NoRC associated RNA, pRNA: an 85-nucleotide sequence from Canis lupus. Rfam 15.1 lists 354 matches to the family in 128 species. The literature on the family includes a 2008 paper in EMBO Rep by Mayer et al., "The structure of NoRC-associated RNA is crucial for targeting the chromatin remodelling complex NoRC to the nucleolus". Gene Ontology term of the family: chromatin remodeling. It is annotated as a non-coding RNA gene.
[Rfam]
RNA sequence: CCGUGGGGCAGGUUUUGGGUACAGUUGGCCGUGUCACGGUCCCGGGAGGUCGCGGUGACCUGUGGCUGGUCCCCGCCGGCAGGCG
Numbered sequence: 001c002c003g004u005g006g007g008g009c010a011g012g013u014u015u016u017g018g019g020u021a022c023a024g025u026u027g028g029c030c031g032u033g034u035c036a037c038g039g040u041c042c043c044g045g046g047a048g049g050u051c052g053c054g055g056u057g058a059c060c061u062g063u064g065g066c067u068g069g070u071c072c073c074c075g076c077c078g079g080c081a082g083g084c085g
Stems, first nucleotide, its partner, number of pairs: 004082001006080001009078001011077002018074002027066001029064001030062002033059005